[Rfam]
RNA sequence: CAGGUCGAGAGGCGCUGCAACGGGCGAUUCGCCCGCCACGCUCGACCAGCCGUCGUGCAGCAAGGGCGCCUCCCACAA
Numbered sequence: 001c002a003g004g005u006c007g008a009g010a011g012g013c014g015c016u017g018c019a020a021c022g023g024g025c026g027a028u029u030c031g032c033c034c035g036c037c038a039c040g041c042u043c044g045a046c047c048a049g050c051c052g053u054c055g056u057g058c059a060g061c062a063a064g065g066g067c068g069c070c071u072c073c074c075a076c077a078a
Base pairs, nucleotide, nucleotide: 003047004046005045006044007043008042021035022034023033024032025031026030

The record is a 78-nucleotide RNA sequence from Solihabitans fulvus, which matches "SAH (S-adenosyl-L-homocysteine) riboswitch aptamer" in Rfam. Lineage of the source: Bacteria > Actinomycetes > Pseudonocardiales > Pseudonocardiaceae > Solihabitans. Rfam links the family to the GO terms regulation of gene expression and S-adenosylhomocysteine metabolic process.